[Rfam]
RNA sequence: GCGAGAGCUCGCCUCGCCUACCAAGCGUACCAGCGCCGCAUUUCAGCACACGAGCGCUCUCUGGCUUAAUGGUUAGCUUGCACUCGUUUGCUGAGUUGCAGCGCUGGUUCGCUUGGUACGCUAGGUGCACUCUGGC
Dot-bracket structure: ((.((((..(((((.((.(((((((((.((((((((.(((.(((((((.(((((.(..(..((((......))))....)).))))).))))))).))).)))))))).))))))))).)).)))))..)))).))
Numbered sequence: 001g002c003g004a005g006a007g008c009u010c011g012c013c014u015c016g017c018c019u020a021c022c023a024a025g026c027g028u029a030c031c032a033g034c035g036c037c038g039c040a041u042u043u044c045a046g047c048a049c050a051c052g053a054g055c056g057c058u059c060u061c062u063g064g065c066u067u068a069a070u071g072g073u074u075a076g077c078u079u080g081c082a083c084u085c086g087u088u089u090g091c092u093g094a095g096u097u098g099c100a101g102c103g104c105u106g107g108u109u110c111g112c113u114u115g116g117u118a119c120g121c122u123a124g125g126u127g128c129a130c131u132c133u134g135g136c
Stems, first nucleotide, its partner, number of pairs: 001136002004133004010127005016121002019118009029108008038099003042095007050087005056081001059080001062075004
Source information
This 136-nucleotide RNA from Phytophthora infestans belongs to the Rfam family "MIR8788 microRNA precursor family". Taxonomically the source falls in Phytophthora (Eukaryota, Stramenopiles, Oomycota, Peronosporales). Pairs were carried over by alignment from the consensus structure, which was predicted with RNAalifold. Rfam links the family to the GO terms miRNA-mediated post-transcriptional gene silencing and RISC complex.